This 73-nucleotide sequence from Saccharothrix syringae belongs to the Rfam family "tRNA". Rfam describes the family as follows. Transfer RNA (tRNA) molecules are approximately 80 nucleotides in length. Lineage of the source: Bacteria > Actinomycetota > Actinomycetes > Pseudonocardiales > Saccharothrix. By type it is a transfer RNA.
RNA sequence: GCGGUUCUAGCCCAACGGCAGAGGCGUCCGGUUGAGGGCCGGUCCAGUCGGGGUUCGAAUCCCCGGAACCGCA
Numbered sequence: 001g002c003g004g005u006u007c008u009a010g011c012c013c014a015a016c017g018g019c020a021g022a023g024g025c026g027u028c029c030g031g032u033u034g035a036g037g038g039c040c041g042g043u044c045c046a047g048u049c050g051g052g053g054u055u056c057g058a059a060u061c062c063c064c065g066g067a068a069c070c071g072c073a
Stems, first nucleotide, its partner, number of pairs: 001072007010025003028042004049065005